Annotation:
The record is a 95-nucleotide RNA sequence from Escherichia fergusonii, which matches "sraA" in Rfam. By type it is a small RNA. It is one of the family's seed sequences. Taxonomically the source falls in Escherichia fergusonii (Bacteria, Pseudomonadati, Pseudomonadota, Enterobacterales). On this family, see Hershberg et al., Nucleic Acids Res 2003: "A survey of small RNA-encoding genes in Escherichia coli". The base pairs follow the family's consensus structure, which was predicted with RNAalifold.

[Rfam]
RNA sequence: AUGUGUGUCAGUAUAUGGGGAUGUUUCCCCCACAUUCAACGCCGGGAAUAGCGGAAAAAUAAAAGGGGAGAUGUAUUCCCCCCUUUUUGAUAAAC
Numbered sequence: 001a002u003g004u005g006u007g008u009c010a011g012u013a014u015a016u017g018g019g020g021a022u023g024u025u026u027c028c029c030c031c032a033c034a035u036u037c038a039a040c041g042c043c044g045g046g047a048a049u050a051g052c053g054g055a056a057a058a059a060u061a062a063a064a065g066g067g068g069a070g071a072u073g074u075a076u077u078c079c080c081c082c083c084u085u086u087u088u089g090a091u092a093a094a095c
Stems, first nucleotide, its partner, number of pairs: 008038001010036003016032005062086007070078002